[Rfam]
mir-252 microRNA precursor family: a 72-nucleotide RNA sequence from Mesorhabditis belari. The match comes from Rfam's covariance-model search (51 bits). Pairs were carried over by alignment from the consensus structure, which was predicted with RNAalifold. On this family, see Li et al., BMC Genomics 2009: "Direct sequencing and expression analysis of a large number of miRNAs in Aedes aegypti and a multi-species survey of novel mosquito miRNAs".

RNA sequence: CCCUCACGAUAAGUAGUAGUGCCGCAGGUAAAGUGAUCAGUGCUACCUGAGCUCUUCUGCUUAACUUGAUGG
Numbered sequence: 001c002c003c004u005c006a007c008g009a010u011a012a013g014u015a016g017u018a019g020u021g022c023c024g025c026a027g028g029u030a031a032a033g034u035g036a037u038c039a040g041u042g043c044u045a046c047c048u049g050a051g052c053u054c055u056u057c058u059g060c061u062u063a064a065c066u067u068g069a070u071g072g
Stems, first nucleotide, its partner, number of pairs: 001072002004069003010063007018055002025049006